[Rfam]
RNA sequence: GCGCGAAGUGACUUUGCGCGACGAAUUAUUUUUCAUCGCGCAAAAUGUGGUCGCGCAAGACUUUGAGUGACGAGUUUCAAGUUUCGUCGCGCAAAAUGACUUUGAGC
Number, nucleotide and partner (000 for none) at each position: 001g107002c106003g000004c104005g103006a102007a101008g100009u099010g000011a097012c000013u095014u094015u093016g092017c091018g090019c089020g088021a087022c086023g085024a084025a083026u000027u000028a000029u000030u000031u000032u000033u073034c072035a000036u070037c069038g068039c067040g000041c065042a064043a063044a000045a000046u000047g000048u000049g062050g061051u060052c059053g000054c000055g000056c000057a000058a000059g052060a051061c050062u049063u043064u042065g041066a000067g039068u038069g037070a036071c000072g034073a033074g000075u000076u000077u000078c000079a000080a000081g000082u000083u025084u024085c023086g022087u021088c020089g019090c018091g017092c016093a015094a014095a013096a000097u011098g000099a009100c008101u007102u006103u005104g004105a000106g002107c001
Shown here is a 107-nucleotide sequence from Prunus persica, a member of the family "MIR6297 microRNA precursor family". The base pairs follow the family's consensus structure, which was predicted with RNAalifold. Rfam's curators put it in the seed alignment.